[Rfam]
RNA sequence: GCUCUUGGAAAACAGGGAGCCACUCUGGGUUCACACUGUAGGUAAAGAAGUGGGUGAACACAGCUGGUGGUAUCUCAGUUUUCUGAGGGCG
Numbered sequence: 001g002c003u004c005u006u007g008g009a010a011a012a013c014a015g016g017g018a019g020c021c022a023c024u025c026u027g028g029g030u031u032c033a034c035a036c037u038g039u040a041g042g043u044a045a046a047g048a049a050g051u052g053g054g055u056g057a058a059c060a061c062a063g064c065u066g067g068u069g070g071u072a073u074c075u076c077a078g079u080u081u082u083c084u085g086a087g088g089g090c091g
Stems, first nucleotide, its partner, number of pairs: 008082004015076001016074002019071002022068003025063003029059001031057002
RNA: mir-317 microRNA precursor family